[Rfam]
RNA: int-alpA RNA
RNA sequence: GCCGGGUCUAGGCUGAUCCCCGAAAAGGCAGACCCUUCACCGCCCUGGCCCGGCACCUUUUUGAAGG
Numbered sequence: 001g002c003c004g005g006g007u008c009u010a011g012g013c014u015g016a017u018c019c020c021c022g023a024a025a026a027g028g029c030a031g032a033c034c035c036u037u038c039a040c041c042g043c044c045c046u047g048g049c050c051c052g053g054c055a056c057c058u059u060u061u062u063g064a065a066g067g
Stems, first nucleotide, its partner, number of pairs: 001054008011021002027044003031040001034067005